[Rfam]
Nucleotides: 212
Base pairs, nucleotide, nucleotide: 001038002037003035005033006032013027014026015025017023018022043069044068045067046066048064049063050062051061052060053059077211078210079209080208081207097199098198099197100196101195102194103193104192105191106190107189108188110162111161112160119151120150122148124146125145127142128141129140130139131138132137164185165184166183169180170179171178
Number, partner (000 for none) and nucleotide at each position: 001038a002037c003035g004000a005033c006032c007000u008000u009000a010000c011000u012000u013027g014026a015025a016000g017023a018022g019000g020000a021000u022018c023017u024000g025015u026014u027013c028000u029000u030000u031000c032006g033005g034000c035003u036000c037002g038001u039000a040000c041000c042000u043069c044068u045067g046066u047000a048064u049063c050062c051061u052060u053059g054000a055000g056000u057000u058000c059053u060052a061051a062050g063049g064048a065000g066046a067045c068044a069043g070000a071000a072000c073000c074000u075000a076000a077211g078210u079209u080208u081207g082000g083000u084000g085000g086000a087000u088000g089000a090000a091000u092000u093000a094000a095000u096000g097199a098198c099197c100196a101195u102194g103193u104192g105191a106190u107189c108188a109000g110162a111161g112160c113000u114000g115000a116000u117000u118000a119151a120150c121000a122148g123000g124146u125145u126000g127142g128141u129140g130139g131138u132137c133000c134000a135000u136000g137132g138131a139130u140129c141128a142127c143000a144000a145125g146124a147000a148122c149000a150120g151119u152000a153000g154000a155000g156000g157000a158000u159000c160112g161111u162110u163000c164185c165184c166183a167000g168000c169180c170179a171178g172000c173000u174000g175000u176000g177000u178171c179170u180169g181000a182000a183166u184165g185164g186000g187000a188108u189107g190106g191105u192104c193103a194102c195101a196100u197099g198098g199097u200000u201000g202000u203000c204000u205000g206000a207081c208080a209079g210078a211077u212000c